The record is a 94-nucleotide RNA sequence from Zingiber officinale, which matches "Small nucleolar RNA R11/Z151" in Rfam. For this family Rfam cites "Identification of 66 box C/D snoRNAs in Arabidopsis thaliana: extensive gene duplications generated multiple isoforms predicting new ribosomal RNA 2'-O-methylation sites" (Barneche et al., J Mol Biol, 2001). Lineage of the source: Eukaryota > Streptophyta > Tracheophyta > Petrosaviidae > Zingiber. By type it is a C/D-box small nucleolar RNA. Rfam 15.1 lists 802 matches to the family in 218 species. The family's consensus secondary structure was predicted with PFOLD.
Nucleotides: 094
Stems, first nucleotide, its partner, number of pairs: 002093004
Number, partner (000 for none) and nucleotide at each position: 001000u002093g003092g004091c005090u006000g007000a008000u009000g010000a011000g012000g013000a014000a015000u016000g017000a018000u019000c020000u021000c022000c023000a024000a025000g026000a027000u028000c029000u030000u031000a032000g033000c034000g035000u036000a037000u038000u039000u040000c041000a042000g043000u044000g045000a046000g047000g048000c049000c050000u051000u052000u053000u054000g055000g056000u057000c058000u059000a060000u061000g062000a063000u064000c065000u066000u067000a068000c069000a070000a071000a072000u073000g074000u075000u076000g077000u078000u079000a080000c081000a082000c083000a084000c085000a086000c087000u088000g089000a090005a091004g092003c093002c094000u